Notes
The family of this 112-nucleotide RNA sequence from Pseudoatta argentina is "Group II catalytic intron D1-D4-2". The source organism's lineage runs through Eukaryota, Eumetazoa, Eumetabola, Myrmicinae and Pseudoatta. From the family's description: Group II introns are found in rRNA, tRNA and mRNA of organelles in fungi, plants and protists, and also in mRNA in bacteria. A search with the family's covariance model found it, with a score of 81 bits.

RNA sequence: GAGGAUAGGUCCCUCGGAGCCGGUUUACAAGAGCAGGCCUCAAACCAUAAGCUGCUUUGGUAAAGAGCCAAGGUAGUGAGCGUUAUGGAAAAGGCGCAGUUAUGUGUGAAAU
Numbered sequence: 001g002a003g004g005a006u007a008g009g010u011c012c013c014u015c016g017g018a019g020c021c022g023g024u025u026u027a028c029a030a031g032a033g034c035a036g037g038c039c040u041c042a043a044a045c046c047a048u049a050a051g052c053u054g055c056u057u058u059g060g061u062a063a064a065g066a067g068c069c070a071a072g073g074u075a076g077u078g079a080g081c082g083u084u085a086u087g088g089a090a091a092a093g094g095c096g097c098a099g100u101u102a103u104g105u106g107u108g109a110a111a112u
Base pairs, nucleotide, nucleotide: 001015002014003013004012016041017040019038020037021036023034024033025032026031045088046087047086048085049084050083051077052076054074055073056072058070059069060068061067098112